[Rfam]
RNA sequence: UGACUUUGGUUAAAGUCAAACUAUUCUAAGUUUGACUAAUUUUGUAGAAAAAAAUAGUAAUAUUUUUAACCCAAGACUAAUAUAUUAUGAAAAUUUACUCAAUUAUAGAUUUAAUAAAACUAUGCUGGUGUUGUAAAUAUUACUACUUUUUUCUAGAGAGUUAGUCAAACUUAGAGUAGUUUGACUUUGACCAAAGUCAA
Numbered sequence: 001u002g003a004c005u006u007u008g009g010u011u012a013a014a015g016u017c018a019a020a021c022u023a024u025u026c027u028a029a030g031u032u033u034g035a036c037u038a039a040u041u042u043u044g045u046a047g048a049a050a051a052a053a054a055u056a057g058u059a060a061u062a063u064u065u066u067u068a069a070c071c072c073a074a075g076a077c078u079a080a081u082a083u084a085u086u087a088u089g090a091a092a093a094u095u096u097a098c099u100c101a102a103u104u105a106u107a108g109a110u111u112u113a114a115u116a117a118a119a120c121u122a123u124g125c126u127g128g129u130g131u132u133g134u135a136a137a138u139a140u141u142a143c144u145a146c147u148u149u150u151u152u153c154u155a156g157a158g159a160g161u162u163a164g165u166c167a168a169a170c171u172u173a174g175a176g177u178a179g180u181u182u183g184a185c186u187u188u189g190a191c192c193a194a195a196g197u198c199a200a
Stems, first nucleotide, its partner, number of pairs: 005195005011189016031169005045155008055145003059141007067133002071128003076123001

The family of this 200-nucleotide RNA sequence from Oryza sativa is "MIR1435 microRNA precursor family". The family's consensus secondary structure was predicted with RNAalifold. The match comes from Rfam's covariance-model search (98 bits). NCBI's taxonomy places the organism under Eukaryota, Euphyllophyta, Liliopsida, Poales, Oryza sativa.